[Rfam]
RNA: Glycine riboswitch aptamer
Organism: Clostridium argentinense
RNA sequence: AUGAAAUUUUCGGGAGAUGAUCUAUUAAAAGUAAUUAUUAAUAAUUAUUUUUAUAACAAUGGGUAGCCGAAGAAGCAAAAAUUUAUUUUGCCAAUAAAUUUGAAACUCUCAGGCAAAAGGACCGAAAAUGGACA
Numbered sequence: 001a002u003g004a005a006a007u008u009u010u011c012g013g014g015a016g017a018u019g020a021u022c023u024a025u026u027a028a029a030a031g032u033a034a035u036u037a038u039u040a041a042u043a044a045u046u047a048u049u050u051u052u053a054u055a056a057c058a059a060u061g062g063g064u065a066g067c068c069g070a071a072g073a074a075g076c077a078a079a080a081a082u083u084u085a086u087u088u089u090g091c092c093a094a095u096a097a098a099u100u101u102g103a104a105a106c107u108c109u110c111a112g113g114c115a116a117a118a119g120g121a122c123c124g125a126a127a128a129u130g131g132a133c134a
Stems, first nucleotide, its partner, number of pairs: 006129008020064007066114003069110002074107002079101009